[Rfam]
RNA: mir-8834 microRNA precursor family
Organism: Nyctereutes procyonoides
RNA sequence: AGUAGGAACUGCCCCAGUGGCCAUGGCAGCUCUGGAAGCCUGGAGUCAGCCCCGGCAGUCACUACGGGGCUCUCCGUCCCGUCCUCAGGGCCUGGAGGCUCCGGGGCUGG
Numbered sequence: 001a002g003u004a005g006g007a008a009c010u011g012c013c014c015c016a017g018u019g020g021c022c023a024u025g026g027c028a029g030c031u032c033u034g035g036a037a038g039c040c041u042g043g044a045g046u047c048a049g050c051c052c053c054g055g056c057a058g059u060c061a062c063u064a065c066g067g068g069g070c071u072c073u074c075c076g077u078c079c080c081g082u083c084c085u086c087a088g089g090g091c092c093u094g095g096a097g098g099c100u101c102c103g104g105g106g107c108u109g110g
Stems, first nucleotide, its partner, number of pairs: 002102001004100002009094001011092001012090003019078003025072001028071007036063001040058003